RNA sequence: AGGAGGAACAACCCCAGUGGCAGCGGCCAGCUCUGGAGCCCUGGAUUCAGCUCCCGCAGGAACUCCGGAUCUCUCCGUCUGCAGGGCCUGGAGGCUCCGGGGAGGG
Number, nucleotide and partner (000 for none) at each position: 001a000002g098003g097004a096005g095006g000007a000008a000009c090010a089011a000012c086013c085014c084015c000016a000017g000018u000019g079020g078021c077022a000023g075024c000025g074026g073027c000028c000029a072030g071031c000032u069033c068034u067035g066036g065037a064038g000039c000040c060041c059042u058043g057044g000045a000046u000047u000048c000049a000050g000051c000052u000053c000054c000055c000056g000057c043058a042059g041060g040061a000062a000063c000064u037065c036066c035067g034068g033069a032070u000071c030072u029073c026074u025075c023076c000077g021078u020079c019080u000081g000082c000083a000084g014085g013086g012087c000088c000089u010090g009091g000092a000093g000094g000095c005096u004097c003098c002099g000100g000101g000102g000103a000104g000105g000106g000

Annotation: Rfam assigns this 106-nucleotide RNA sequence from Canis lupus to the family "mir-8834 microRNA precursor family". Lineage of the source: Eukaryota > Tetrapoda > Eutheria > Caniformia > Canis lupus. A search with the family's covariance model found it, with a score of 82 bits.